Notes:
Shown here is a 71-nucleotide RNA sequence from Actinoplanes nipponensis, a member of the family "tRNA". The family's RNA type in Rfam is transfer RNA. NCBI's taxonomy places the organism under Bacteria, Actinomycetota, Micromonosporales, Micromonosporaceae, Actinoplanes.
[Rfam]
RNA sequence: GCGGGUGUAGUUCAAUGGCAGAACAUCAGCUUCCCAAGCUGAAUAUGCGGGUUCGAUUCCCGUCACCCGCU
Numbered sequence: 001g002c003g004g005g006u007g008u009a010g011u012u013c014a015a016u017g018g019c020a021g022a023a024c025a026u027c028a029g030c031u032u033c034c035c036a037a038g039c040u041g042a043a044u045a046u047g048c049g050g051g052u053u054c055g056a057u058u059c060c061c062g063u064c065a066c067c068c069g070c071u
Stems, first nucleotide, its partner, number of pairs: 001070007010024004026042005047063005